[Rfam]
RNA: RAGATH-18 RNA
Organism: Lachnospiraceae bacterium XBB1006
RNA sequence: ACUGUGGAGUGUACAAGAACUUGUUAGUAGUGUGUUGUUUGCAACCACCAAAGCAUACACAUUGAAACAGUAA
Number, nucleotide and partner (000 for none) at each position: 001a071002c070003u069004g068005u067006g000007g000008a000009g060010u059011g058012u057013a056014c000015a000016a000017g000018a000019a000020c000021u000022u055023g054024u053025u000026a000027g000028u000029a000030g048031u047032g046033u000034g000035u044036u043037g000038u000039u000040u000041g000042c000043a036044a035045c000046c032047a031048c030049c000050a000051a000052a000053g024054c023055a022056u013057a012058c011059a010060c009061a000062u000063u000064g000065a000066a000067a005068c004069a003070g002071u001072a000073a000